This 94-nucleotide RNA from Leifsonia sp. Root60 belongs to the Rfam family "mraW RNA". NCBI's taxonomy places the organism under Bacteria, Bacillati, Actinomycetota, Micrococcales, Leifsonia.
RNA sequence: UCUAGUUCCUGUUCCCCGACUCCCAGCCGGCACGCUGACACACUUCCCCGGUGUCAGACUCCGGAUGGGGAUCGGGGGACAGGAGCCCUCCCGG
Numbered sequence: 001u002c003u004a005g006u007u008c009c010u011g012u013u014c015c016c017c018g019a020c021u022c023c024c025a026g027c028c029g030g031c032a033c034g035c036u037g038a039c040a041c042a043c044u045u046c047c048c049c050g051g052u053g054u055c056a057g058a059c060u061c062c063g064g065a066u067g068g069g070g071a072u073c074g075g076g077g078g079a080c081a082g083g084a085g086c087c088c089u090c091c092c093g094g
Stems, first nucleotide, its partner, number of pairs: 010081007018073002021070005027064004032060001035057007
It is annotated as a cis-regulatory element. Pairs were carried over by alignment from the consensus structure, which is taken from published work.